[Rfam]
RNA: Listeria sRNA rli28
RNA sequence: GAAAUUGUGUUAUACUAUCGUCAGUAGAAUAAAGAAGUCGAAAAAAGAUGGUGGCUAAUCUCUUGAAAAAGGGGUGAUGCCUAUGAUUUAUAUAGCAUGCUUUAUCCCUAGAAAGGAAUAAUCGUGUCUGUUUUUGAAGCAUUAUCACUAAUGAUUGCGUUCGCAACUUUAGUUUUGAUGAUAAAAGACGAUAA
Numbered sequence: 001g002a003a004a005u006u007g008u009g010u011u012a013u014a015c016u017a018u019c020g021u022c023a024g025u026a027g028a029a030u031a032a033a034g035a036a037g038u039c040g041a042a043a044a045a046a047g048a049u050g051g052u053g054g055c056u057a058a059u060c061u062c063u064u065g066a067a068a069a070a071g072g073g074g075u076g077a078u079g080c081c082u083a084u085g086a087u088u089u090a091u092a093u094a095g096c097a098u099g100c101u102u103u104a105u106c107c108c109u110a111g112a113a114a115g116g117a118a119u120a121a122u123c124g125u126g127u128c129u130g131u132u133u134u135u136g137a138a139g140c141a142u143u144a145u146c147a148c149u150a151a152u153g154a155u156u157g158c159g160u161u162c163g164c165a166a167c168u169u170u171a172g173u174u175u176u177g178a179u180g181a182u183a184a185a186a187g188a189c190g191a192u193a194a
Stems, first nucleotide, its partner, number of pairs: 051167002054164002070109008079100002126146001130142002133139001172189004